This 89-nucleotide sequence from Hymenochirus boettgeri belongs to the Rfam family "mir-1 microRNA precursor family". NCBI's taxonomy places the organism under Eukaryota, Eumetazoa, Gnathostomata, Teleostomi, Hymenochirus. This family represents the microRNA (miRNA) mir-1 family. miRNAs are transcribed as ~70nt precursors (modelled here) and subsequently processed by the Dicer enzyme to give a ~22nt product. In this case the mature sequence comes from the 3' arm of the precursor. For this family Rfam cites "microRNAs: tiny regulators with great potential" (Ambros, Cell, 2001). Rfam 15.1 lists 4,474 matches to the family in 965 species.
[Rfam]
RNA sequence: CCCCUAAUGUAAUACCUCCUUACUGCCCAUAAACUAGGUAUGGCCUGUCCGUCCUAGUUAUGGGCAGUAAGGAGGUAUUACAUUAAGGG
Numbered sequence: 001c002c003c004c005u006a007a008u009g010u011a012a013u014a015c016c017u018c019c020u021u022a023c024u025g026c027c028c029a030u031a032a033a034c035u036a037g038g039u040a041u042g043g044c045c046u047g048u049c050c051g052u053c054c055u056a057g058u059u060a061u062g063g064g065c066a067g068u069a070a071g072g073a074g075g076u077a078u079u080a081c082a083u084u085a086a087g088g089g
Base pairs, nucleotide, nucleotide: 007083008082009081010080011079012078013077014076015075016074017073018072019071020070021069022068023067024066025065027063028062029061030060031059